Shown here is a 145-nucleotide RNA sequence from Nocardioides marinus, a member of the family "FMN riboswitch aptamer (RFN element)".
RNA sequence: UCGCGUGCUCUGGGGGCGGUGAAAUUCCGCACCGGCGGUGAUCUGGUGAGAGCCAGCAGCCCGCGACCCGGUCACUGCCAGUGACCGGUGGACCAGGUGUGAUUCCUGGGCCGACGGUCAAAGUCCGGAUGAGAAGCGCACGCAG
Numbered sequence: 001u002c003g004c005g006u007g008c009u010c011u012g013g014g015g016g017c018g019g020u021g022a023a024a025u026u027c028c029g030c031a032c033c034g035g036c037g038g039u040g041a042u043c044u045g046g047u048g049a050g051a052g053c054c055a056g057c058a059g060c061c062c063g064c065g066a067c068c069c070g071g072u073c074a075c076u077g078c079c080a081g082u083g084a085c086c087g088g089u090g091g092a093c094c095a096g097g098u099g100u101g102a103u104u105c106c107u108g109g110g111c112c113g114a115c116g117g118u119c120a121a122a123g124u125c126c127g128g129a130u131g132a133g134a135a136g137c138g139c140a141c142g143c144a145g
Stems, first nucleotide, its partner, number of pairs: 003143006010136001017029003031124002033113002035064004059111002068088002093109005115127003
The organism belongs to Nocardioides, within Bacteria.